RNA sequence: UGGUAGAUGCACCCUGAUAACUCACUCCCCUGGUUGACUGCCAUCGACUAGGGGAUUUUUUU
Numbered sequence: 001u002g003g004u005a006g007a008u009g010c011a012c013c014c015u016g017a018u019a020a021c022u023c024a025c026u027c028c029c030c031u032g033g034u035u036g037a038c039u040g041c042c043a044u045c046g047a048c049u050a051g052g053g054g055a056u057u058u059u060u061u062u
Base pairs, nucleotide, nucleotide: 002013003012004011027054028053029052030051031050032049033048034047035046036045037044
Annotation:
The record is a 62-nucleotide RNA sequence from Calothrix sp. NIES-3974, which matches "Nitrogen stress-induced RNA 1" in Rfam. It scores 73 bits against the family's covariance model. Rfam classes the family as a small RNA. Lineage of the source: Bacteria > Cyanobacteriota > Nostocales > Calotrichaceae > Calothrix.